Background:
Rfam assigns this 326-nucleotide RNA sequence from Acanthisitta chloris to the family "7SK RNA". NCBI's taxonomy places the organism under Eukaryota, Opisthokonta, Theropoda, Neoaves, Acanthisitta. Rfam describes the family as follows. 7SK was discovered as an abundant small nuclear RNA in the mid-70s but a possible function has only recently been suggested.
RNA sequence: GGGUCUGUGAGGGCGAUCUGGCUGCAACAUCUGUCACCCCAUUGAUUGCCAGGGUUGAGUUGGCUAUCUGGCUGGCUAGGCAGGUGUCCCCAUCCUCCCUCAAUGCUCCAUGUACGUCCCUCCUGAAGCUGCACGCUCAGUCAAAUAGGGCGGUACCGAUAGAUACGGUACCGAUCAUCAGUCAGGGGUAUACGGUAGCUGUGCUCCCCUGCUAGAACCUCCAAACAAGCUCUAGGUCCGUUUGUAGGAGAAUGUAGGGUAGUCAAGCUUCCAGGACUGCAGGCACAUCCAAGUGAGGUGUUGCAUGGGGCAGUUUGCCAUUGUUU
Numbered sequence: 001g002g003g004u005c006u007g008u009g010a011g012g013g014c015g016a017u018c019u020g021g022c023u024g025c026a027a028c029a030u031c032u033g034u035c036a037c038c039c040c041a042u043u044g045a046u047u048g049c050c051a052g053g054g055u056u057g058a059g060u061u062g063g064c065u066a067u068c069u070g071g072c073u074g075g076c077u078a079g080g081c082a083g084g085u086g087u088c089c090c091c092a093u094c095c096u097c098c099c100u101c102a103a104u105g106c107u108c109c110a111u112g113u114a115c116g117u118c119c120c121u122c123c124u125g126a127a128g129c130u131g132c133a134c135g136c137u138c139a140g141u142c143a144a145a146u147a148g149g150g151c152g153g154u155a156c157c158g159a160u161a162g163a164u165a166c167g168g169u170a171c172c173g174a175u176c177a178u179c180a181g182u183c184a185g186g187g188g189u190a191u192a193c194g195g196u197a198g199c200u201g202u203g204c205u206c207c208c209c210u211g212c213u214a215g216a217a218c219c220u221c222c223a224a225a226c227a228a229g230c231u232c233u234a235g236g237u238c239c240g241u242u243u244g245u246a247g248g249a250g251a252a253u254g255u256a257g258g259g260u261a262g263u264c265a266a267g268c269u270u271c272c273a274g275g276a277c278u279g280c281a282g283g284c285a286c287a288u289c290c291a292a293g294u295g296a297g298g299u300g301u302u303g304c305a306u307g308g309g310g311c312a313g314u315u316u317g318c319c320a321u322u323g324u325u326u
Base pairs, nucleotide, nucleotide: 001109002108003107008102009101010100011099012098013097015094016093020091021090027087028086029085030084031083032082033081034080035079037075038074039071040070041069044068045067046066048064049063050062117168118167121163122162123140124139125138126137128136129135141159142158198268199267200266204262205261207259208258209257210256211255212254219250220249221248222247225245226244227243228242229241291326292325293324295321297319298318299317300314301313302312303311304310